RNA sequence: GCCGAGCUCACUAACGAGAGCUUGUAACCCAUGUGGAGGCAAUAAUGUGGUGGAAUGUUGAGCCUGUCCAAAAGGCAGGACUUGGGUAGCUAAGUUUUGGCCUGCCCUCUCCAAGCAUUGAGUUGGGCUACAUAGUCCAUGCAAAGGCUUGAGUUUCUUGGCUCCUAUAGUGGGGCAGACCACGUGAGGCUGGUUUUACAGAGCAACGAACAACUCCCGCUUUGUGCUAUGGAAGGAUAACGGUUCAGUGCUACUCAGGACCAAUGAAUGUCUGAUGUGCUACUCUAAUUAAACCACCACUUUU
Dot-bracket structure: (((((((((.(....).)))))).....((....)).)))...((.(((((((..(((((((......((..(((((((.(((((.(((.((....((((.(((.((..(((((((((.((((.((((((...(((.((.((....)).)).)))...))))))(....).((((.......(((....(((......)))....))).....)))).)))).))))).)))).))....))).))))))))).))))).))......)))))..)).....)).))).))..))))))).)).
The record is a 304-nucleotide sequence from Nicotiana tabacum, which matches "Plant signal recognition particle RNA" in Rfam.
It scores 207 bits against the family's covariance model.
The organism belongs to Nicotiana, within Eukaryota.
Rfam links the family to the GO terms SRP-dependent cotranslational protein targeting to membrane, signal sequence recognition and signal recognition particle, endoplasmic reticulum targeting.